[Rfam]
Nucleotides: 170
Stems, first nucleotide, its partner, number of pairs: 005166002008163003011157002013096001015152003020146003025142008039114005045074005054065004081105003087099003116128003
Number, partner (000 for none) and nucleotide at each position: 001000g002000g003000c004000g005166c006165c007000g008163u009162u010161c011157g012156u013096u014000a015152g016151c017150u018000g019000a020146g021145g022144c023000u024000c025142c026141u027140u028139u029138g030137u031136g032135g033000a034000u035000a036000u037000a038000a039114g040113c041112c042111a043110g044000c045074g046073a047072c048071c049070c050000c051000c052000a053000a054065c055064g056063u057062c058000c059000a060000g061000a062057g063056a064055c065054g066000c067000c068000c069000c070049g071048g072047g073046u074045c075000a076000g077000g078000a079000c080000a081105g082104g083103u084000u085000u086000u087099c088098c089097c090000g091000g092000a093000a094000c095000a096013a097089g098088g099087g100000a101000u102000u103083g104082c105081c106000c107000c108000g109000a110043u111042u112041g113040g114039c115000u116128c117127c118126c119000g120000g121000u122000u123000u124000c125000c126118g127117g128116g129000u130000u131000a132000a133000c134000g135032c136031c137030g138029c139028a140027a141026a142025g143000u144022g145021c146020c147000a148000a149000a150017g151016g152015u153000c154000u155000u156012a157011c158000g159000a160000g161010g162009a163008g164000a165006g166005g167000u168000u169000a170000c
Record summary: Rfam assigns this 170-nucleotide RNA from Cryobacterium sp. MDB2-A-2 to the family "M-box riboswitch aptamer (ykoK leader)". Rfam describes the family as follows. M-box riboswitch, also know as ykoK leader is described as a metaloregulatory RNA that sense divalent metals and function as a genetic control element of genes related to divalent metal transport in bacteria.